[Rfam]
RNA sequence: AUACUCAGGUUUCUCUUCAGGUCAUAUAAAUCUUGCCCUUUUACUAAAGAUUCCAUGGAGAGGAACAAUUAUGACUCUUAAACCAAUUUUUUGAGGCCUCGAGGCU
Numbered sequence: 001a002u003a004c005u006c007a008g009g010u011u012u013c014u015c016u017u018c019a020g021g022u023c024a025u026a027u028a029a030a031u032c033u034u035g036c037c038c039u040u041u042u043a044c045u046a047a048a049g050a051u052u053c054c055a056u057g058g059a060g061a062g063g064a065a066c067a068a069u070u071a072u073g074a075c076u077c078u079u080a081a082a083c084c085a086a087u088u089u090u091u092u093g094a095g096g097c098c099u100c101g102a103g104g105c106u
Stems, first nucleotide, its partner, number of pairs: 003076001005074002009066011028052001030051005094106001096105003

U5 spliceosomal RNA: a 106-nucleotide RNA sequence from Oryctolagus cuniculus. The match comes from Rfam's covariance-model search (59 bits). By type it is a spliceosomal small nuclear RNA. U5 RNA is a component of both types of known spliceosome. The precise function of this molecule is unknown, though it is known that the 5' loop is required for splice site selection and p220 binding, and that both the 3' stem-loop and the Sm site are important for Sm protein binding and cap methylation. Pairs were carried over by alignment from the consensus structure, which is taken from published work. Lineage of the source: Eukaryota > Metazoa > Gnathostomata > Mammalia > Oryctolagus.